[Rfam]
RNA sequence: CUCUGAUUUCAAGGAUUUCAGGGCGGAAGGAG
Number, nucleotide and partner (000 for none) at each position: 001c023002u022003c021004u020005g019006a000007u000008u015009u014010c000011a000012a000013g000014g009015a008016u000017u000018u000019c005020a004021g003022g002023g001024c000025g000026g000027a000028a000029g000030g000031a000032g000

Background:
Shown here is a 32-nucleotide RNA sequence, a member of the family "L31-Firmicutes ribosomal protein leader". Clan: Ribosomal Protein L31 Leader clan. It is annotated as a cis-regulatory leader. Pairs were carried over by alignment from the consensus structure, which is taken from published work.